[Rfam]
RNA sequence: GGCAGAUGAAGGCAGGCUAAGUGCGCAACGUCCUGUUGCUACGCCUGCCUGACCUGCAUCCUGCAGG
Dot-bracket structure: ..........(((((((.......(((((.....)))))...)))))))...(((((.....)))))

This 67-nucleotide RNA sequence from Bacillus mesophilus belongs to the Rfam family "Bacillaceae-1 RNA". The family's RNA type in Rfam is small RNA. The base pairs follow the family's consensus structure, which is taken from published work.